RNA sequence: AGGGGACGAUGGUGCUGGGCACCCGGCGGGCUGCAAACCCGCUUGUUCCCGGGUUAAACCGGGAAGGAGGUUCGAUUCCCCUCGUCCCCU
Numbered sequence: 001a002g003g004g005g006a007c008g009a010u011g012g013u014g015c016u017g018g019g020c021a022c023c024c025g026g027c028g029g030g031c032u033g034c035a036a037a038c039c040c041g042c043u044u045g046u047u048c049c050c051g052g053g054u055u056a057a058a059c060c061g062g063g064a065a066g067g068a069g070g071u072u073c074g075a076u077u078c079c080c081c082u083c084g085u086c087c088c089c090u
Stems, first nucleotide, its partner, number of pairs: 001090009011023005025043006047064005067081001069079002
A member of the RNA family "Selenocysteine transfer RNA" from Thermosulfuriphilus ammonigenes, 90 nucleotides long. Rfam 15.1 lists 4,211 matches to the family in 3,344 species. The base pairs follow the family's consensus structure, which is taken from published work. Clan: tRNA clan. The source organism's lineage runs through Bacteria, Thermodesulfobacteriota, Thermodesulfobacteriales, Thermodesulfobacteriaceae and Thermosulfuriphilus.